A member of the RNA family "SraG RNA" from Yersinia pseudotuberculosis, 182 nucleotides long. It is annotated as a small RNA.
[Rfam]
RNA sequence: CUUCACACUGCAUCCUCGCGACUAAUGACAAUCCUUAACUUUCAUUAAGUUAAAGUCUCUCAUUAGCCGCGCGAACCUCUGCAUUGGAAGAUCCUAUUUAUAAAUCUUAUAUAAUAAUAACAAUAUACUAACGUAUUCUAUCAUUACUUCUUAGAAAAAAGGGGCCAACUUGGCCCCUUUCU
Dot-bracket structure: ((((.((..(((....((((.(((((((...............................)))))))...))))......)))..)))))).....((.....................................))........................((((((.....)))))).....
Numbered sequence: 001c002u003u004c005a006c007a008c009u010g011c012a013u014c015c016u017c018g019c020g021a022c023u024a025a026u027g028a029c030a031a032u033c034c035u036u037a038a039c040u041u042u043c044a045u046u047a048a049g050u051u052a053a054a055g056u057c058u059c060u061c062a063u064u065a066g067c068c069g070c071g072c073g074a075a076c077c078u079c080u081g082c083a084u085u086g087g088a089a090g091a092u093c094c095u096a097u098u099u100a101u102a103a104a105u106c107u108u109a110u111a112u113a114a115u116a117a118u119a120a121c122a123a124u125a126u127a128c129u130a131a132c133g134u135a136u137u138c139u140a141u142c143a144u145u146a147c148u149u150c151u152u153a154g155a156a157a158a159a160a161g162g163g164g165c166c167a168a169c170u171u172g173g174c175c176c177c178u179u180u181c182u
Stems, first nucleotide, its partner, number of pairs: 001090004006086002010082003017073004022066007096136002161177006
It is one of the family's seed sequences. Rfam describes the family as follows. This RNA was discovered in E. coli during a large scale screen. Evidence was found for specific cleavage of this RNA. The source organism's lineage runs through Bacteria, Pseudomonadota, Enterobacterales, Yersinia pseudotuberculosis complex and Yersinia pseudotuberculosis. On this family, see Fontaine et al., RNA 2016: "The small RNA SraG participates in PNPase homeostasis".